[Rfam]
RNA: U5 spliceosomal RNA
Organism: Chenopodium quinoa
RNA sequence: AGCCAUGCAGUGAGCACAGAGCGAACUAUUCUUUCGCCUUUUACUAAAGAAUUCCAUGUGCUCGUUGCAUUUAGUGGCAUACGUUUAUAUUUGGAGGGAGUUCUUUAAUUCGA
Dot-bracket structure: ..((((.(((((((((((.........(((((((...........)))))))....)))))))))))......)))).......................((.........))